[Rfam]
RNA sequence: UGAGUCCCUACCCUAUAAGCCCUGGUCCGGCAAUAGGUACUGAGUGUUGCGUCGUCAUCGGUAACGGUGGCGUCGAAGCGUACACAAGGAGUUGAUGGGCCACAAUGCAAAAGCGUGAAGGUAUAAAGCCCCGAAAUGAACCAUACAAGUGGAUGCCGACGUGGUUUGCGACGCGGAAGGCAACACCGGAGAAGCUAACGACCAAUGCUUCCGAGGGUCCACCGGGGUCUGUGACCG
Numbered sequence: 001u002g003a004g005u006c007c008c009u010a011c012c013c014u015a016u017a018a019g020c021c022c023u024g025g026u027c028c029g030g031c032a033a034u035a036g037g038u039a040c041u042g043a044g045u046g047u048u049g050c051g052u053c054g055u056c057a058u059c060g061g062u063a064a065c066g067g068u069g070g071c072g073u074c075g076a077a078g079c080g081u082a083c084a085c086a087a088g089g090a091g092u093u094g095a096u097g098g099g100c101c102a103c104a105a106u107g108c109a110a111a112a113g114c115g116u117g118a119a120g121g122u123a124u125a126a127a128g129c130c131c132c133g134a135a136a137u138g139a140a141c142c143a144u145a146c147a148a149g150u151g152g153a154u155g156c157c158g159a160c161g162u163g164g165u166u167u168g169c170g171a172c173g174c175g176g177a178a179g180g181c182a183a184c185a186c187c188g189g190a191g192a193a194g195c196u197a198a199c200g201a202c203c204a205a206u207g208c209u210u211c212c213g214a215g216g217g218u219c220c221a222c223c224g225g226g227g228u229c230u231g232u233g234a235c236c237g
Stems, first nucleotide, its partner, number of pairs: 012037005019031003023205001025203001040088002044085004048080002050075002053072008128228006149222006155181003160175004186216002191211005
Rfam assigns this 237-nucleotide sequence from Acaryochloris marina to the family "Group II catalytic intron D1-D4-6". The match comes from Rfam's covariance-model search (129 bits). The pairing is the family consensus, mapped onto this sequence. About the family: Group II introns are found in rRNA, tRNA and mRNA of organelles in fungi, plants and protists, and also in mRNA in bacteria.